Annotation
Rfam assigns this 85-nucleotide RNA from Raphanus sativus to the family "Small nucleolar RNA R11/Z151". By type it is a C/D-box small nucleolar RNA. Lineage of the source: Eukaryota > Streptophyta > Magnoliopsida > Gunneridae > Raphanus. Rfam links the family to the GO terms RNA processing and nucleolus. A reference for the family is Barneche et al. (2001), "Identification of 66 box C/D snoRNAs in Arabidopsis thaliana: extensive gene duplications generated multiple isoforms predicting new ribosomal RNA 2'-O-methylation sites", J Mol Biol. It scores 74 bits against the family's covariance model.
RNA sequence: AAGCUUAUGAAGAUAAAAAUAAUAAUCCUAGCGGAUUUCAUUUAGGUUUAUUGAUAAAUGAUCUGAAUUUGUCACACUGAAGCUA
Numbered sequence: 001a002a003g004c005u006u007a008u009g010a011a012g013a014u015a016a017a018a019a020u021a022a023u024a025a026u027c028c029u030a031g032c033g034g035a036u037u038u039c040a041u042u043u044a045g046g047u048u049u050a051u052u053g054a055u056a057a058a059u060g061a062u063c064u065g066a067a068u069u070u071g072u073c074a075c076a077c078u079g080a081a082g083c084u085a
Base pairs, nucleotide, nucleotide: 002084003083004082005081